[Rfam]
The record is a 111-nucleotide RNA from Burkholderia ambifaria, which matches "Burkholderia sRNA Bp1_Cand684_SIPHT" in Rfam. It is one of the family's seed sequences. A reference for the family is Khoo et al. (2012), "Computational discovery and RT-PCR validation of novel Burkholderia conserved and Burkholderia pseudomallei unique sRNAs", BMC Genomics. Rfam classes the family as a small RNA. The family has 14 seed sequences and 176 matches in Rfam 15.1.
RNA sequence: AGAAAAGUGACCGCCGCCCCGCGCAGGGGCGACGCCAGCAGACCGUUAUGAAAGCAAGUUCAACGACGAGGCGUGGAUGACCGACAGAAACCCCACGCCCCCGCGAGCCUC
Numbered sequence: 001a002g003a004a005a006a007g008u009g010a011c012c013g014c015c016g017c018c019c020c021g022c023g024c025a026g027g028g029g030c031g032a033c034g035c036c037a038g039c040a041g042a043c044c045g046u047u048a049u050g051a052a053a054g055c056a057a058g059u060u061c062a063a064c065g066a067c068g069a070g071g072c073g074u075g076g077a078u079g080a081c082c083g084a085c086a087g088a089a090a091c092c093c094c095a096c097g098c099c100c101c102c103g104c105g106a107g108c109c110u111c
Stems, first nucleotide, its partner, number of pairs: 011076004015031006058067003096105003